Rfam assigns this 85-nucleotide sequence from Cloeon dipterum to the family "mir-46/mir-47/mir-281 microRNA precursor family". Taxonomically the source falls in Cloeon (Eukaryota, Bilateria, Insecta, Baetidae). The match comes from Rfam's covariance-model search (67 bits). The family has 57 seed sequences and 307 matches in Rfam 15.1. A reference for the family is Lau et al. (2001), "An abundant class of tiny RNAs with probable regulatory roles in Caenorhabditis elegans", Science.
RNA sequence: CAGUCAGUGCCUUCAAGAGAGCUAUCCGUCGACAGUAGAGUUCGGAACACACUGUCAUGGAGUUGCUCUCUUUAUGGCUCGACUC
Numbered sequence: 001c002a003g004u005c006a007g008u009g010c011c012u013u014c015a016a017g018a019g020a021g022c023u024a025u026c027c028g029u030c031g032a033c034a035g036u037a038g039a040g041u042u043c044g045g046a047a048c049a050c051a052c053u054g055u056c057a058u059g060g061a062g063u064u065g066c067u068c069u070c071u072u073u074a075u076g077g078c079u080c081g082a083c084u085c
Stems, first nucleotide, its partner, number of pairs: 015072004020067003025061004031056003035052002